Manganese Mn2+ riboswitch aptamer (yybP-ykoY): a 174-nucleotide RNA from Stenotrophobium rhamnosiphilum.
RNA sequence: GCACGCGUCACUGGGGAGUAGCCGCCUGCCGUUUUGAGCAGGGAACGCAUCAACAUUCUUGACCUUCGGUCAUGGUGCGUUCGGCAGUCAUUACGAUUGCGUCUGGCGAGACCAUUGGCAUGAGACCUGUCCCGGGCUGGGCGGGGUUUCGUGCCUUUGGUUCAAUCGCUGUCC
Number, nucleotide and partner (000 for none) at each position: 001g000002c000003a000004c000005g000006c000007g000008u000009c000010a000011c000012u000013g000014g000015g000016g000017a000018g000019u000020a000021g000022c000023c000024g000025c000026c041027u040028g039029c000030c000031g000032u000033u000034u000035u000036g000037a000038g000039c028040a027041g026042g000043g082044a081045a080046c079047g078048c077049a076050u075051c074052a073053a000054c000055a000056u000057u000058c000059u000060u072061g071062a070063c069064c068065u000066u000067c000068g064069g063070u062071c061072a060073u052074g051075g050076u049077g048078c047079g046080u045081u044082c043083g000084g000085c000086a000087g000088u000089c000090a000091u000092u000093a000094c000095g000096a000097u000098u000099g000100c000101g000102u000103c000104u000105g000106g000107c000108g000109a000110g000111a000112c000113c000114a000115u000116u000117g000118g000119c000120a000121u000122g000123a000124g000125a000126c000127c000128u000129g000130u000131c000132c000133c000134g000135g000136g000137c000138u000139g000140g000141g000142c000143g000144g000145g000146g000147u000148u000149u000150c000151g000152u000153g000154c000155c000156u000157u000158u000159g000160g000161u000162u000163c000164a000165a000166u000167c000168g000169c000170u000171g000172u000173c000174c000
Gene Ontology term of the family: manganese ion binding.